This 122-nucleotide sequence from Rhizobium sp. P32RR-XVIII belongs to the Rfam family "Alphaproteobacterial ar14". Pairs were carried over by alignment from the consensus structure. The family has 118 seed sequences and 784 matches in Rfam 15.1. Smr14C2 was renamed NfeR1 (Nodule Formation Efficiency RNA) highly expressed in salt stress and during the symbiotic interaction on legume roots. Taxonomically the source falls in Rhizobium (Bacteria, Pseudomonadati, Alphaproteobacteria, Rhizobiaceae).

RNA sequence: GGUGAUCGAAGCGAUUCACCUCCUCCCGAAGCGCUUCGGCUUGACUGACAGCACUCCUCCUCCCAAGCUGUCGGUCACCUAUCGAAGCCCGGCGCAUCUCCUCCCCGCGCCGGGCUUUUUCA
Numbered sequence: 001g002g003u004g005a006u007c008g009a010a011g012c013g014a015u016u017c018a019c020c021u022c023c024u025c026c027c028g029a030a031g032c033g034c035u036u037c038g039g040c041u042u043g044a045c046u047g048a049c050a051g052c053a054c055u056c057c058u059c060c061u062c063c064c065a066a067g068c069u070g071u072c073g074g075u076c077a078c079c080u081a082u083c084g085a086a087g088c089c090c091g092g093c094g095c096a097u098c099u100c101c102u103c104c105c106c107g108c109g110c111c112g113g114g115c116u117u118u119u120u121c122a
Base pairs, nucleotide, nucleotide: 007038008037009036011034012033013032015030016029017028043076044075045074046073047072048071049070050069051068052067085117086116087115088114089113090112091111092110093109094108095107